[Rfam]
RNA sequence: UAACGACAAAGGUAAACCCUGAGUGAUCAGGGGACACAAAGUAACAGGGUCUUUUGUAGGAGCGUAUGGCAUAGAUGUAAAAAAGAUAGCCUUUUUGCUAAA
Numbered sequence: 001u002a003a004c005g006a007c008a009a010a011g012g013u014a015a016a017c018c019c020u021g022a023g024u025g026a027u028c029a030g031g032g033g034a035c036a037c038a039a040a041g042u043a044a045c046a047g048g049g050u051c052u053u054u055u056g057u058a059g060g061a062g063c064g065u066a067u068g069g070c071a072u073a074g075a076u077g078u079a080a081a082a083a084a085g086a087u088a089g090c091c092u093u094u095u096u097g098c099u100a101a102a
Base pairs, nucleotide, nucleotide: 012037013036017032018031019030020029021028022027040096041095043093046092047091048090049087050086051085052081053080
c-di-GMP-I riboswitch aptamer: a 102-nucleotide RNA from Candidatus Brocadia sapporoensis.
Gene Ontology term of the family: cyclic-di-GMP binding.